[Rfam]
A member of the RNA family "Purine riboswitch aptamer" from Candidatus Enterococcus dunnyi, 98 nucleotides long. A reference for the family is Mandal et al. (2003), "Riboswitches Control Fundamental Biochemical Pathways in Bacillus subtilis and Other Bacteria", Cell.
RNA sequence: UUGUAUAGUAAUACAAGAGCUUAUAUAUGGUCAUAAUAUGGAUGACUGUCUCUACCCGACACCGUAAAUGUCGGUCUAUAAGCGAAAAAGAGUCUGAG
Numbered sequence: 001u002u003g004u005a006u007a008g009u010a011a012u013a014c015a016a017g018a019g020c021u022u023a024u025a026u027a028u029g030g031u032c033a034u035a036a037u038a039u040g041g042a043u044g045a046c047u048g049u050c051u052c053u054a055c056c057c058g059a060c061a062c063c064g065u066a067a068a069u070g071u072c073g074g075u076c077u078a079u080a081a082g083c084g085a086a087a088a089a090g091a092g093u094c095u096g097a098g
Stems, first nucleotide, its partner, number of pairs: 019083007029047006056074006
The match comes from Rfam's covariance-model search (69 bits).